[Rfam]
Metazoan signal recognition particle RNA: a 286-nucleotide RNA from Pediculus humanus.
Taxonomically the source falls in Pediculus humanus (Eukaryota, Altocrustacea, Insecta, Neoptera).
About the family: The signal recognition particle (SRP) is a universally conserved ribonucleoprotein. It is involved in the co-translational targeting of proteins to membranes. The eukaryotic SRP consists of a 300-nucleotide 7S RNA and six proteins: SRPs 72, 68, 54, 19, 14, and 9. Archaeal SRP consists of a 7S RNA and homologues of the eukaryotic SRP19 and SRP54 proteins.
By type it is a non-coding RNA gene.

RNA sequence: GCCGGGAGUGGUGGUGUACUUCUGUGAUCCAACUACUCGGAGGUUAGGUGUAGAGAAUGUUUUAAGGGGAGGGGGUUUUGGGAUUGAAUUUUCCACGUUGAAUAGGCGUCCGCUAGGGGUAAAUGUUCGACUUGGAUGCCUUGGGGGAGCCCCGAGGUAGCCAGUUUGAGUUCGAAAAGGGAAAAAAUUGGCCCAAAAGUCUCACCGAGUUGAGAGUCGUGGGUUCAAAUCCUGGGAGUGGGAGUUCAGUUUUAGCUCGUUCAAACAGGAACAGACCUGUACCUAC
Numbered sequence: 001g002c003c004g005g006g007a008g009u010g011g012u013g014g015u016g017u018a019c020u021u022c023u024g025u026g027a028u029c030c031a032a033c034u035a036c037u038c039g040g041a042g043g044u045u046a047g048g049u050g051u052a053g054a055g056a057a058u059g060u061u062u063u064a065a066g067g068g069g070a071g072g073g074g075g076u077u078u079u080g081g082g083a084u085u086g087a088a089u090u091u092u093c094c095a096c097g098u099u100g101a102a103u104a105g106g107c108g109u110c111c112g113c114u115a116g117g118g119g120u121a122a123a124u125g126u127u128c129g130a131c132u133u134g135g136a137u138g139c140c141u142u143g144g145g146g147g148a149g150c151c152c153c154g155a156g157g158u159a160g161c162c163a164g165u166u167u168g169a170g171u172u173c174g175a176a177a178a179g180g181g182a183a184a185a186a187a188u189u190g191g192c193c194c195a196a197a198a199g200u201c202u203c204a205c206c207g208a209g210u211u212g213a214g215a216g217u218c219g220u221g222g223g224u225u226c227a228a229a230u231c232c233u234g235g236g237a238g239u240g241g242g243a244g245u246u247c248a249g250u251u252u253u254a255g256c257u258c259g260u261u262c263a264a265a266c267a268g269g270a271a272c273a274g275a276c277c278u279g280u281a282c283c284u285a286c
Base pairs, nucleotide, nucleotide: 001044002043003042004023005022006021007020008019009018010017028041029040030039046284047283048282049281050280051279052278053277058273059272060271061270062269063268067262068261069260071258072257073256078255079254080253081252082251083250084249085248086247087246088245089244090243092242093241094240095239096238098236103234104233105232106231109228110223111222113221116218117217120213122211123210124209126208127207128168129167130166132164133163134162135161137159138158139157140156141155142154143152144151145150171177172176179205181203182202184200188198